[Rfam]
RNA: Bacterial large subunit ribosomal RNA, nucleotides 2539 to 2788
RNA sequence: GGAAGUUUGAGAGGAUCUGCCUUUAGUACGAGAGGACCGAGGUGGACGUACCUCUGGUGGACCAGUUGUCGCGCCAGCGGCACAGCUGGGUAGCUAAGUACGGAAGGGAUAACCGCUGAAUGCAUCUAAGCGGGAAACCCACCUUAAAACUAGACUUCCCUAUUAGAGCCGUGGAAGACCACCACGUUGAUAGGUCAGGUGUGGAAGCACGGUAACGUGUGUAGCUAACUGAUACUAAUAGCUCGAUUGU
Number, nucleotide and partner (000 for none) at each position: 001g159002g158003a157004a156005g155006u154007u153008u152009g000010a000011g145012a144013g143014g142015a000016u000017c045018u044019g043020c042021c041022u040023u039024u000025a000026g000027u000028a000029c000030g000031a000032g000033a000034g000035g000036a000037c000038c000039g023040a022041g021042g020043u019044g018045g017046a000047c102048g101049u100050a099051c098052c000053u000054c000055u096056g095057g094058u000059g000060g000061a000062c089063c088064a087065g086066u085067u082068g081069u080070c079071g078072c077073g000074c000075c000076a000077g072078c071079g070080g069081c068082a067083c000084a000085g066086c065087u064088g063089g062090g000091u000092a000093g000094c057095u056096a055097a000098g051099u050100a049101c048102g047103g000104a000105a000106g140107g139108g138109a000110u000111a000112a000113c133114c132115g131116c130117u129118g000119a000120a000121u000122g000123c000124a000125u000126c000127u000128a000129a117130g116131c115132g114133g113134g000135a000136a000137a000138c108139c107140c106141a000142c014143c013144u012145u011146a000147a000148a000149a000150c000151u000152a008153g007154a006155c005156u004157u003158c002159c001160c000161u000162a000163u246164u000165a000166g244167a243168g242169c241170c186171g185172u184173g183174g182175a000176a000177g000178a000179c000180c000181a000182c174183c173184a172185c171186g170187u000188u000189g000190a000191u237192a236193g235194g233195u232196c231197a230198g229199g000200u000201g225202u000203g000204g000205a000206a000207g220208c219209a218210c217211g216212g000213u000214a000215a000216c211217g210218u209219g208220u207221g000222u000223a000224g000225c201226u000227a000228a000229c198230u197231g196232a195233u194234a000235c193236u192237a191238a000239u000240a000241g169242c168243u167244c166245g000246a163247u000248u000249g000250u000